[Rfam]
RNA sequence: AACGUUCAUCCCGAAAGGGACGCAAGUAAGCCGACACGGAACGGAUU
Numbered sequence: 001a002a003c004g005u006u007c008a009u010c011c012c013g014a015a016a017g018g019g020a021c022g023c024a025a026g027u028a029a030g031c032c033g034a035c036a037c038g039g040a041a042c043g044g045a046u047u
Base pairs, nucleotide, nucleotide: 003043004042005041006040007039009020010019011018012017023044